The record is a 93-nucleotide sequence from Hibiscus trionum, which matches "MIR164 microRNA precursor family" in Rfam. It scores 66 bits against the family's covariance model. A reference for the family is Mica et al. (2009), "High throughput approaches reveal splicing of primary microRNA transcripts and tissue specific expression of mature microRNAs in Vitis vinifera", BMC Genomics.
Nucleotides: 093
Base pairs, nucleotide, nucleotide: 001091002090003089004088005087006086007085008084010082011081013079014078015077016076017075018074019073020072021071022070023069024068
Number, partner (000 for none) and nucleotide at each position: 001091u002090g003089g004088a005087g006086a007085a008084g009000g010082g011081g012000a013079g014078c015077a016076c017075g018074u019073g020072c021071a022070g023069a024068a025000a026000g027000g028000c029000u030000a031000u032000a033000u034000u035000g036000u037000a038000u039000a040000c041000a042000a043000u044000a045000u046000a047000c048000a049000u050000a051000u052000g053000u054000a055000g056000a057000a058000a059000u060000a061000c062000a063000u064000g065000c066000a067000c068024u069023u070022u071021u072020g073019c074018a075017c076016g077015u078014g079013c080000c081011c082010u083000g084008c085007u086006u087005c088004u089003c090002c091001a092000a093000c